[Rfam]
RNA: Salmonella enterica Typhi npcRNA 44
RNA sequence: CUUUAACAAUCUGGAACAAGCUGAAAAUUGAAAUGAUGAAUAAUCGGAAGAUUAUUCACGAGUCUCUCAAAAGCGCACAGCCGAUGAUGGAAACAUCUUCGG
Numbered sequence: 001c002u003u004u005a006a007c008a009a010u011c012u013g014g015a016a017c018a019a020g021c022u023g024a025a026a027a028u029u030g031a032a033a034u035g036a037u038g039a040a041u042a043a044u045c046g047g048a049a050g051a052u053u054a055u056u057c058a059c060g061a062g063u064c065u066c067u068c069a070a071a072a073g074c075g076c077a078c079a080g081c082c083g084a085u086g087a088u089g090g091a092a093a094c095a096u097c098u099u100c101g102g
Stems, first nucleotide, its partner, number of pairs: 020078001023076001028071002034060002038057007082101003086097004